[Rfam]
RNA sequence: GUGUAUGCAGUAGGAAUUGAACCUACAAAUUCUCCAAUUAUGAGUUGGGCGCUUUUACCAUUAAGCCAUGGAUGC
Numbered sequence: 001g002u003g004u005a006u007g008c009a010g011u012a013g014g015a016a017u018u019g020a021a022c023c024u025a026c027a028a029a030u031u032c033u034c035c036a037a038u039u040a041u042g043a044g045u046u047g048g049g050c051g052c053u054u055u056u057a058c059c060a061u062u063a064a065g066c067c068a069u070g071g072a073u074g075c
Stems, first nucleotide, its partner, number of pairs: 003075004008070001010026005040069003044066003048062002051059001

Record summary: Shown here is a 75-nucleotide RNA sequence from Abrus precatorius, a member of the family "Plastid-ycf2 5UTR RNA". The family's consensus secondary structure was predicted with LocARNA. Rfam classes the family as a cis-regulatory element. The match comes from Rfam's covariance-model search (85 bits).